[Rfam]
RNA sequence: GCCAGGUGAUCUUAAAACGUUCUCUGAAAAGCUCUUGAGGAUUCCUGGUUAAUAGCAUGUUAGAGUUCUGAUGGCG
Numbered sequence: 001g002c003c004a005g006g007u008g009a010u011c012u013u014a015a016a017a018c019g020u021u022c023u024c025u026g027a028a029a030a031g032c033u034c035u036u037g038a039g040g041a042u043u044c045c046u047g048g049u050u051a052a053u054a055g056c057a058u059g060u061u062a063g064a065g066u067u068c069u070g071a072u073g074g075c076g
Stems, first nucleotide, its partner, number of pairs: 001075004
Rfam assigns this 76-nucleotide RNA sequence from Sphenodon punctatus to the family "Small nucleolar RNA SNORD28". The family has 20 seed sequences and 229 matches in Rfam 15.1. The literature on the family includes a 1996 paper in Proc Natl Acad Sci U S A by Tycowski et al., "A small nucleolar RNA requirement for site-specific ribose methylation of rRNA in Xenopus". It is annotated as a C/D-box small nucleolar RNA. The family's consensus secondary structure was predicted with PFOLD.